[Rfam]
RNA sequence: CAUCGCCUGCUGCAUAGCCGUCACGGCGGCUAUGCCUGCGCGAUUUGAAUCUGGUCGUGCCGCUUCCUCACAAGGGAACCGCCAUGCGCAAUGGGGAAACCACCGGCCUAGGCCGGCAGGUCUGGCGCAGUCGUUACGCUGAUCGGCAACGCCUUCGGCGUGGCGACCUGUAAAGCACGAAAAGACG
Numbered sequence: 001c002a003u004c005g006c007c008u009g010c011u012g013c014a015u016a017g018c019c020g021u022c023a024c025g026g027c028g029g030c031u032a033u034g035c036c037u038g039c040g041c042g043a044u045u046u047g048a049a050u051c052u053g054g055u056c057g058u059g060c061c062g063c064u065u066c067c068u069c070a071c072a073a074g075g076g077a078a079c080c081g082c083c084a085u086g087c088g089c090a091a092u093g094g095g096g097a098a099a100c101c102a103c104c105g106g107c108c109u110a111g112g113c114c115g116g117c118a119g120g121u122c123u124g125g126c127g128c129a130g131u132c133g134u135u136a137c138g139c140u141g142a143u144c145g146g147c148a149a150c151g152c153c154u155u156c157g158g159c160g161u162g163g164c165g166a167c168c169u170g171u172a173a174a175g176c177a178c179g180a181a182a183a184g185a186c187g
Base pairs, nucleotide, nucleotide: 004042005041006040012035013034014033015032016031017030018029019028020027021026055180056179057178058177059176060175061081062080064078065077066076067075068074085129086128087127088126089125095123096122097121100120101119103116104115105114106113107112131166132165134163135162136161137160138159139158140157141156142155145153146152147151
The family of this 187-nucleotide RNA sequence from Paludibacterium purpuratum is "RT-15 RNA". The source organism's lineage runs through Bacteria, Pseudomonadati, Pseudomonadota, Chromobacteriaceae and Paludibacterium.